Shown here is a 170-nucleotide RNA from Halalkalibacter oceani, a member of the family "Group II catalytic intron D1-D4-3". Lineage of the source: Bacteria > Bacilli > Caryophanales > Bacillaceae > Halalkalibacter.

[Rfam]
RNA sequence: UCUAGGGUGACCUAGAAUCUGAAGGAAGUCCGAGGCAAACCUCCGCUCCGAGGAACACGAAUCUCAUCAGGCGCUUAUUCUUGGAUGAGACUGCCAAACAAGUCAAAGUCCUAGUGACCAAAGGGGAUAGGUGUAAAUGAGGCGGAGACAUGGAGGGGAAGGACAUGCAC
Numbered sequence: 001u002c003u004a005g006g007g008u009g010a011c012c013u014a015g016a017a018u019c020u021g022a023a024g025g026a027a028g029u030c031c032g033a034g035g036c037a038a039a040c041c042u043c044c045g046c047u048c049c050g051a052g053g054a055a056c057a058c059g060a061a062u063c064u065c066a067u068c069a070g071g072c073g074c075u076u077a078u079u080c081u082u083g084g085a086u087g088a089g090a091c092u093g094c095c096a097a098a099c100a101a102g103u104c105a106a107a108g109u110c111c112u113a114g115u116g117a118c119c120a121a122a123g124g125g126g127a128u129a130g131g132u133g134u135a136a137a138u139g140a141g142g143c144g145g146a147g148a149c150a151u152g153g154a155g156g157g158g159a160a161g162g163a164c165a166u167g168c169a170c
Stems, first nucleotide, its partner, number of pairs: 001016006028170002031167002036162001040156006046147005062142005071134003075130007083111004089104004

The pairing is the family consensus, mapped onto this sequence.